[Rfam]
RNA sequence: UUGGGGUAAAAUAGUGAGAAGCCGACAUGGGGAAGUGAUCGACCCUUGGGAUAAGUUUAAUUAUGCUUUUUUUAACUCCAUAAACUUUUUACCGUGGGUAAAAAGAACUUCUUGGGGUAAAAAAAAAUAGGAUUUAAAUUUAGCCCAAAUGUUGAUGAUGUAUUUUUUUCAAGAAGGCUGCUCACUAUUUUACCCCAC
Numbered sequence: 001u002u003g004g005g006g007u008a009a010a011a012u013a014g015u016g017a018g019a020a021g022c023c024g025a026c027a028u029g030g031g032g033a034a035g036u037g038a039u040c041g042a043c044c045c046u047u048g049g050g051a052u053a054a055g056u057u058u059a060a061u062u063a064u065g066c067u068u069u070u071u072u073u074a075a076c077u078c079c080a081u082a083a084a085c086u087u088u089u090u091a092c093c094g095u096g097g098g099u100a101a102a103a104a105g106a107a108c109u110u111c112u113u114g115g116g117g118u119a120a121a122a123a124a125a126a127a128u129a130g131g132a133u134u135u136a137a138a139u140u141u142a143g144c145c146c147a148a149a150u151g152u153u154g155a156u157g158a159u160g161u162a163u164u165u166u167u168u169u170c171a172a173g174a175a176g177g178c179u180g181c182u183c184a185c186u187a188u189u190u191u192a193c194c195c196c197a198c
Stems, first nucleotide, its partner, number of pairs: 003196016020179004026173001028171008038159004042152002046148005052142004057137004062132001064130001067127007075118006085105009